The record is a 256-nucleotide RNA from Anaeromonas frigoriresistens, which matches "T-box leader" in Rfam. Pairs were carried over by alignment from the consensus structure, which is taken from published work. The source organism's lineage runs through Bacteria, Bacillati, Tissierellales, Thermohalobacteraceae and Anaeromonas. Rfam describes the family as follows. Uncharged tRNA acts as the effector for transcription antitermination of genes in the T-box leader family. T-boxes are found upstream of many aminoacyl-tRNA synthetase genes and some amino acid biosynthetic genes usually in Gram-positive bacteria.
RNA sequence: UUAAAGUCUUUGAUUAGGAAUAGUAAUUAAAUUAUUUUCUAUUUCAGCGAAUCGGAGUUGGUGUGAGUCCGAUAUAGAAUAUUUGAUGAAUGGUCCUAUGAGGUGCUCAAUCAAAUCCUUAGGGGAGAGUAGUUGGUGUCGGGGGUUUCCCGUUAUAGAAACAGGAUAUCGAGAUUCUAUUCUCUGUAUCUGAUAAGAGAGAUAGUUUUGCUAUCUAAUCUGGGUGGUAUCGCGGAAGUAACCUUUCGUCCCUUAU
Numbered sequence: 001u002u003a004a005a006g007u008c009u010u011u012g013a014u015u016a017g018g019a020a021u022a023g024u025a026a027u028u029a030a031a032u033u034a035u036u037u038u039c040u041a042u043u044u045c046a047g048c049g050a051a052u053c054g055g056a057g058u059u060g061g062u063g064u065g066a067g068u069c070c071g072a073u074a075u076a077g078a079a080u081a082u083u084u085g086a087u088g089a090a091u092g093g094u095c096c097u098a099u100g101a102g103g104u105g106c107u108c109a110a111u112c113a114a115a116u117c118c119u120u121a122g123g124g125g126a127g128a129g130u131a132g133u134u135g136g137u138g139u140c141g142g143g144g145g146u147u148u149c150c151c152g153u154u155a156u157a158g159a160a161a162c163a164g165g166a167u168a169u170c171g172a173g174a175u176u177c178u179a180u181u182c183u184c185u186g187u188a189u190c191u192g193a194u195a196a197g198a199g200a201g202a203u204a205g206u207u208u209u210g211c212u213a214u215c216u217a218a219u220c221u222g223g224g225u226g227g228u229a230u231c232g233c234g235g236a237a238g239u240a241a242c243c244u245u246u247c248g249u250c251c252c253u254u255a256u
Base pairs, nucleotide, nucleotide: 007103008102015098016097017096018095026087027086028085029084030083031082040076041075042074051073052072053071054070055069056068106138108136110134112132140152141151142150200216201215202214203213204212205211206210222252223251224250232249233248234247235246236245